[Rfam]
Rfam assigns this 104-nucleotide sequence from Neomonachus schauinslandi to the family "Y RNA". On this family, see Dhahbi et al., Physiol Genomics 2013: "5'-YRNA fragments derived by processing of transcripts from specific YRNA genes and pseudogenes are abundant in human serum and plasma". A search with the family's covariance model found it, with a score of 42 bits. The family's RNA type in Rfam is non-coding RNA gene.
RNA sequence: UGUUAAGGUCCGAGUACAAUGGUGUUUACAAUUAAUUGAUCACAGCCAGUUACAGAUUUCUUUACUCUUUCUCCACUCCCACUGCUUCACUUAACUAACCCUGU
Number, nucleotide and partner (000 for none) at each position: 001u000002g099003u098004u097005a000006a000007g096008g095009u094010c000011c000012g092013a091014g000015u000016a000017c000018a083019a000020u081021g080022g079023u000024g078025u000026u000027u000028a000029c000030a066031a000032u064033u000034a062035a061036u000037u000038g000039a000040u000041c000042a000043c000044a000045g000046c000047c000048a000049g000050u000051u000052a000053c000054a000055g000056a000057u000058u000059u000060c000061u035062u034063u000064a032065c000066u030067c000068u000069u000070u000071c000072u000073c000074c000075a000076c000077u000078c024079c022080c021081a020082c000083u018084g000085c000086u000087u000088c000089a000090c000091u013092u012093a000094a009095c008096u007097a004098a003099c002100c000101c000102u000103g000104u000